This 53-nucleotide sequence from Halosimplex carlsbadense belongs to the Rfam family "eL15-Euryarchaeota ribosomal protein leader". For this family Rfam cites "Discovery of 20 novel ribosomal leader candidates in bacteria and archaea" (Eckert and Weinberg, BMC Microbiol, 2020). The source organism's lineage runs through Archaea, Methanobacteriota, Halobacteria, Halobacteriales and Halosimplex carlsbadense. It is annotated as a cis-regulatory leader.
RNA sequence: CCUGCCUGUGCAGGUCGGGAUGUGAUCGCCGGCGACGGCGGUUGAACCACGCA
Numbered sequence: 001c002c003u004g005c006c007u008g009u010g011c012a013g014g015u016c017g018g019g020a021u022g023u024g025a026u027c028g029c030c031g032g033c034g035a036c037g038g039c040g041g042u043u044g045a046a047c048c049a050c051g052c053a
Base pairs, nucleotide, nucleotide: 001014002013003012004011005010017048018047024043025042026041027040028039029038030037